[Rfam]
RNA sequence: UGACAAUGAUGACUCUUAGGACACCUUUGGAAUCAUUAUGAAAUAAAAUCUUCAUUCUGAGUCAU
Numbered sequence: 001u002g003a004c005a006a007u008g009a010u011g012a013c014u015c016u017u018a019g020g021a022c023a024c025c026u027u028u029g030g031a032a033u034c035a036u037u038a039u040g041a042a043a044u045a046a047a048a049u050c051u052u053c054a055u056u057c058u059g060a061g062u063c064a065u
Base pairs, nucleotide, nucleotide: 001064002063003062004061
The family of this 65-nucleotide RNA sequence from Crypturellus undulatus is "Small nucleolar RNA SNORD58". snoRNA U58 is found in introns 1, 3 and 6 of the ribosomal protein RPL17 gene in humans. It is annotated as a C/D-box small nucleolar RNA. The literature on the family includes a 2002 paper in Mol Cell Biol by Galardi et al., "Purified box C/D snoRNPs are able to reproduce site-specific 2'-O-methylation of target RNA in vitro".